[Rfam]
RNA sequence: UUAAAGUUUCAUCUACAAAUGGAUAAGACUUUUGUCUUAGUGUAUAUGAAUCGUUAAAACAAAGUAACAAUACCCUAUAUCUUGCUAAAACAAGAUACGGGGUAUUGCUACUUU
Numbered sequence: 001u002u003a004a005a006g007u008u009u010c011a012u013c014u015a016c017a018a019a020u021g022g023a024u025a026a027g028a029c030u031u032u033u034g035u036c037u038u039a040g041u042g043u044a045u046a047u048g049a050a051u052c053g054u055u056a057a058a059a060c061a062a063a064g065u066a067a068c069a070a071u072a073c074c075c076u077a078u079a080u081c082u083u084g085c086u087a088a089a090a091c092a093a094g095a096u097a098c099g100g101g102g103u104a105u106u107g108c109u110a111c112u113u114u
Base pairs, nucleotide, nucleotide: 008023009022010021011020012019061114062113063112064111065110066109068107069106070105071104072103073102075100076099079096080095081094082093083092
A member of the RNA family "Plastid-psbA-1 3UTR RNA" from Musa troglodytarum, 114 nucleotides long. It is annotated as a cis-regulatory element. On this family, see Richter et al., Plant Commun 2023: "Retrograde signaling in plants: A critical review focusing on the GUN pathway and beyond". Lineage of the source: Eukaryota > Streptophyta > Euphyllophyta > Spermatophyta > Musa. The base pairs follow the family's consensus structure, which was predicted with LocARNA.